[Rfam]
Description
Potassium channel RNA editing signal: a 114-nucleotide RNA sequence from Heliothis virescens.
RNA sequence: CCCAGGUACGGCGACAUGGUGCCAGGCACGAUAGCCGGUAAGAUAGUCGGAGGAGUGUGCUCCCUCUCCGGAGUGCUGGUGAUCGCGCUCCCAGUGCCUGUCAUCGUGUCCAAC
Numbered sequence: 001c002c003c004a005g006g007u008a009c010g011g012c013g014a015c016a017u018g019g020u021g022c023c024a025g026g027c028a029c030g031a032u033a034g035c036c037g038g039u040a041a042g043a044u045a046g047u048c049g050g051a052g053g054a055g056u057g058u059g060c061u062c063c064c065u066c067u068c069c070g071g072a073g074u075g076c077u078g079g080u081g082a083u084c085g086c087g088c089u090c091c092c093a094g095u096g097c098c099u100g101u102c103a104u105c106g107u108g109u110c111c112a113a114c
Stems, first nucleotide, its partner, number of pairs: 005110001007108005013102004018097001021095002037077004049063003